The family of this 149-nucleotide RNA sequence from Halalkalibacter suaedae is "FMN riboswitch aptamer (RFN element)". The match comes from Rfam's covariance-model search (112 bits). The RFN element is a highly conserved domain that is found frequently in the 5'-untranslated regions of prokaryotic mRNAs that encode for flavin mononucleotide (FMN) biosynthesis and transport proteins.

RNA sequence: AAUAUCCUUCGGGGCCGGGUGGAAAUCCCGACCGGCGGUGAUGAGGUUAUAAUGACUUCAAAGUCCGUGACCCUCUUCUAGUAAUAGGGGAGGCUGACCUGGUGCAACUCCAGGACCGACAGUGAAAGUCUGGAUGGGAGAAGGAAAGA
Numbered sequence: 001a002a003u004a005u006c007c008u009u010c011g012g013g014g015c016c017g018g019g020u021g022g023a024a025a026u027c028c029c030g031a032c033c034g035g036c037g038g039u040g041a042u043g044a045g046g047u048u049a050u051a052a053u054g055a056c057u058u059c060a061a062a063g064u065c066c067g068u069g070a071c072c073c074u075c076u077u078c079u080a081g082u083a084a085u086a087g088g089g090g091a092g093g094c095u096g097a098c099c100u101g102g103u104g105c106a107a108c109u110c111c112a113g114g115a116c117c118g119a120c121a122g123u124g125a126a127a128g129u130c131u132g133g134a135u136g137g138g139a140g141a142a143g144g145a146a147a148g149a
Stems, first nucleotide, its partner, number of pairs: 003147001005145006017029003031129002033118002035068004063116002072093002098114005120132003
Dot-bracket structure: ..(.((((((......(((.......))).[[((((((........................[[))))...((..................))....(((((.......)))))]])).(((.....]]))).......)))))).)..